The record is an 85-nucleotide RNA from Homo sapiens, which matches "mir-4742 microRNA precursor family" in Rfam. Rfam's curators put it in the seed alignment. The base pairs follow the family's consensus structure, which was predicted with RNAalifold. NCBI's taxonomy places the organism under Eukaryota, Chordata, Craniata, Hominidae, Homo.

RNA sequence: UCAGGCAAAGGGAUAUUUACAGAUACUUUUUAAAAUUUGUUUGAGUUGAGGCAGAUUAAAUAUCUGUAUUCUCCUUUGCCUGCAG
Number, nucleotide and partner (000 for none) at each position: 001u000002c082003a081004g080005g079006c078007a077008a076009a075010g074011g073012g072013a000014u000015a000016u000017u000018u068019a067020c066021a065022g064023a063024u062025a061026c000027u060028u059029u058030u000031u000032a000033a000034a057035a056036u055037u054038u053039g052040u051041u050042u049043g000044a000045g000046u000047u000048g000049a042050g041051g040052c039053a038054g037055a036056u035057u034058a029059a028060a027061u025062a024063u023064c022065u021066g020067u019068a018069u000070u000071c000072u012073c011074c010075u009076u008077u007078g006079c005080c004081u003082g002083c000084a000085g000